This 73-nucleotide RNA sequence from Blautia liquoris belongs to the Rfam family "tRNA". A search with the family's covariance model found it, with a score of 72 bits.
[Rfam]
RNA sequence: GCGCUUUUAGCUCAGUUGGUAGAGCAGUAGACUCUUAAUCUAUUUGUCCAGGGUUCGAGUCCCUGAAGGCGCA
Number, nucleotide and partner (000 for none) at each position: 001g072002c071003g070004c069005u068006u067007u066008u000009a000010g025011c024012u023013c022014a000015g000016u000017u000018g000019g000020u000021a000022g013023a012024g011025c010026a000027g043028u042029a041030g040031a039032c000033u000034c000035u000036u000037a000038a000039u031040c030041u029042a028043u027044u000045u000046g000047u000048c000049c065050a064051g063052g062053g061054u000055u000056c000057g000058a000059g000060u000061c053062c052063c051064u050065g049066a007067a006068g005069g004070c003071g002072c001073a000
Record summary: Transfer RNA (tRNA) molecules are approximately 80 nucleotides in length.